RNA: Trypanosomatid snoRNA TB11Cs5H2
Organism: Trypanosoma congolense
RNA sequence: AAGCAGCAUCAGUACAGCGGAGGUGCCCCAUUGGCUCCAUGGCGCGUUCCGCUGGCGAUGCGGCGAGA
Numbered sequence: 001a002a003g004c005a006g007c008a009u010c011a012g013u014a015c016a017g018c019g020g021a022g023g024u025g026c027c028c029c030a031u032u033g034g035c036u037c038c039a040u041g042g043c044g045c046g047u048u049c050c051g052c053u054g055g056c057g058a059u060g061c062g063g064c065g066a067g068a
Stems, first nucleotide, its partner, number of pairs: 003064002006061004015054005023045005